[Rfam]
Nucleotides: 221
Base pairs, nucleotide, nucleotide: 001058002057003056004055005054006053007052010037011036012034013033016031038047039046040045061207062206063205066084067083068082069081070080071079072078087201088200089199090198091197092196093195094194095193096192104139105138108133109132110131111130112129113128114127115126116217119215120214121213122212123211124210141182142181143180144179147178148177149176153175155172156171157170158169159168161166
Number, partner (000 for none) and nucleotide at each position: 001058g002057u003056c004055a005054a006053u007052g008000c009000c010037c011036c012034c013033u014000u015000c016031u017000g018000a019000a020000u021000c022000g023000a024000a025000g026000c027000u028000u029000c030000a031016g032000a033013a034012g035000g036011g037010g038047c039046u040045u041000g042000u043000a044000a045040a046039a047038g048000c049000c050000c051000a052007c053006a054005u055004u056003g057002a058001c059000u060000a061207g062206c063205c064000u065000u066084a067083g068082c069081c070080c071079u072078g073000c074000c075000u076000g077000u078072c079071g080070g081069g082068g083067c084066u085000a086000c087201g088200u089199u090198c091197g092196g093195c094194a095193g096192g097000a098000u099000g100000u101000c102000a103000g104139a105138c106000a107000c108133c109132u110131u111130c112129g113128g114127a115126u116217g117000u118000a119215u120214u121213c122212g123211c124210c125000a126115g127114u128113c129112c130111g131110a132109a133108g134000c135000g136000c137000u138105g139104u140000c141182g142181c143180g144179g145000c146000u147178c148177u149176g150000u151000a152000a153175a154000a155172g156171c157170u158169c159168u160000g161166u162000g163000a164000g165000g166161a167000a168159g169158g170157a171156g172155c173000g174000g175153u176149c177148a178147g179144c180143c181142g182141c183000g184000u185000u186000g187000c188000g189000a190000a191000g192096c193095c194094u195093g196092c197091c198090g199089a200088a201087c202000a203000u204000u205063g206062g207061c208000g209000a210124g211123g212122c213121g214120a215119a216000c217116c218000c219000c220000a221000c
Rfam assigns this 221-nucleotide RNA sequence from Desulfonema ishimotonii to the family "HNH endonuclease-associated RNA and ORF (HEARO) RNA".
The source organism's lineage runs through Bacteria, Thermodesulfobacteriota, Desulfobacteria, Desulfobacterales and Desulfonema.
A search with the family's covariance model found it, with a score of 128 bits.
The family has 139 seed sequences and 952 matches in Rfam 15.1.